About this RNA
Rfam assigns this 70-nucleotide RNA sequence from Tessaracoccus oleiagri to the family "Glycine riboswitch aptamer". The literature on the family includes a 2004 paper in Science by Mandal et al., "A glycine-dependent riboswitch that uses cooperative binding to control gene expression". The match comes from Rfam's covariance-model search (35 bits). The source organism's lineage runs through Bacteria, Bacillati, Actinomycetota, Propionibacteriaceae and Tessaracoccus.

RNA sequence: CGACUCUGGAAAGAGGCCUCCCGGCCCGCCGACGGAUGAAAUAUCUCAGGCACCAAGGACAGAGGGGGCA
Numbered sequence: 001c002g003a004c005u006c007u008g009g010a011a012a013g014a015g016g017c018c019u020c021c022c023g024g025c026c027c028g029c030c031g032a033c034g035g036a037u038g039a040a041a042u043a044u045c046u047c048a049g050g051c052a053c054c055a056a057g058g059a060c061a062g063a064g065g066g067g068g069c070a
Stems, first nucleotide, its partner, number of pairs: 001067001004064005015026004028051003031047002035045003